Rfam assigns this 142-nucleotide RNA sequence from Nannospalax galili to the family "Small nucleolar RNA SNORA67". Lineage of the source: Eukaryota > Bilateria > Deuterostomia > Myomorpha > Nannospalax. Pairs were carried over by alignment from the consensus structure, which was predicted with RNAalifold. Its family is annotated with nucleolus and RNA processing in the Gene Ontology.
[Rfam]
RNA sequence: GUCCAAGGUGAUUCCUUCUCCAAGGGGCCAACUAAUGCCCUUCUCAGGAAUGUAGCAACUUGGAAGAGAACUUGGCAUGCCUAAGGUCUUUGGAGAGCAAGGGAUGUGUAUUUCCUUUGCCUCACAUUGGCUGCCUACAUGC
Dot-bracket structure: .((((((.((........(((.((((((........))))))....)))......)).))))))..........(..(......(......(.(((..............))).).......)......).)..........